[Rfam]
RNA sequence: ACAAAAAGCUACAAAGGUGGUUAAGAGGCGAAAGUGAAAGCUUUUGCCUAGUAACGGUUGAGUGUUGCGACACUGUCAAAUUGCGGGGACAUCCUUAGAGCCUUUUGCUACCGCCUCUAUGUUGAAAAGCAUAGUAGAGCACCAGGUUAACGACCUCGGGUAUGGUAAUAACGCAAAAGGAUUGGACAAUCCGCAGCCAAGUCCUAAGGGUUUCUUAAUGAAAUCUAUGGAUGCAGUUCACAGACUAGAUGGCAGUGGGUGUUGCGCAAGCAAUGCUUAAGAUAUAGUCGAUCCUGCCGCGAAAGCGGUCU
Numbered sequence: 001a002c003a004a005a006a007a008g009c010u011a012c013a014a015a016g017g018u019g020g021u022u023a024a025g026a027g028g029c030g031a032a033a034g035u036g037a038a039a040g041c042u043u044u045u046g047c048c049u050a051g052u053a054a055c056g057g058u059u060g061a062g063u064g065u066u067g068c069g070a071c072a073c074u075g076u077c078a079a080a081u082u083g084c085g086g087g088g089a090c091a092u093c094c095u096u097a098g099a100g101c102c103u104u105u106u107g108c109u110a111c112c113g114c115c116u117c118u119a120u121g122u123u124g125a126a127a128a129g130c131a132u133a134g135u136a137g138a139g140c141a142c143c144a145g146g147u148u149a150a151c152g153a154c155c156u157c158g159g160g161u162a163u164g165g166u167a168a169u170a171a172c173g174c175a176a177a178a179g180g181a182u183u184g185g186a187c188a189a190u191c192c193g194c195a196g197c198c199a200a201g202u203c204c205u206a207a208g209g210g211u212u213u214c215u216u217a218a219u220g221a222a223a224u225c226u227a228u229g230g231a232u233g234c235a236g237u238u239c240a241c242a243g244a245c246u247a248g249a250u251g252g253c254a255g256u257g258g259g260u261g262u263u264g265c266g267c268a269a270g271c272a273a274u275g276c277u278u279a280a281g282a283u284a285u286a287g288u289c290g291a292u293c294c295u296g297c298c299g300c301g302a303a304a305g306c307g308g309u310c311u
Stems, first nucleotide, its partner, number of pairs: 028035002071257005077251002082195006092186003196237002201232004209225005241290001243289005259276007296309005